Record summary: The record is a 54-nucleotide RNA sequence from Conger conger, which matches "UnaL2 LINE 3' element" in Rfam. The family's RNA type in Rfam is cis-regulatory element.

Nucleotides: 054
Base pairs, nucleotide, nucleotide: 013043014041015040016039020036021035022034023033024032025031
Number, partner (000 for none) and nucleotide at each position: 001000a002000g003000u004000g005000g006000g007000a008000u009000c010000u011000g012000u013043u014041g015040u016039a017000c018000g019000u020036c021035g022034c023033u024032c025031u026000g027000g028000a029000u030000a031025a032024g033023a034022g035021c036020g037000u038000c039016u040015g041014c042000c043013a044000a045000a046000u047000g048000c049000c050000a051000a052000u053000a054000a
The base pairs follow the family's consensus structure, which is taken from published work. NCBI's taxonomy places the organism under Eukaryota, Neopterygii, Anguilliformes, Congridae, Conger.